[Rfam]
RNA sequence: AAGCAAUGAUGAGUGAAGUAUUCUCUGAACUGGUAUUGCUGAGACUCUUUGUCUUUGCUCUGACCAGGGCAUGAUCACGUAAUCUUCUCUCUGAGCUU
Numbered sequence: 001a002a003g004c005a006a007u008g009a010u011g012a013g014u015g016a017a018g019u020a021u022u023c024u025c026u027g028a029a030c031u032g033g034u035a036u037u038g039c040u041g042a043g044a045c046u047c048u049u050u051g052u053c054u055u056u057g058c059u060c061u062g063a064c065c066a067g068g069g070c071a072u073g074a075u076c077a078c079g080u081a082a083u084c085u086u087c088u089c090u091c092u093g094a095g096c097u098u
Base pairs, nucleotide, nucleotide: 001097003096004095038058039057041055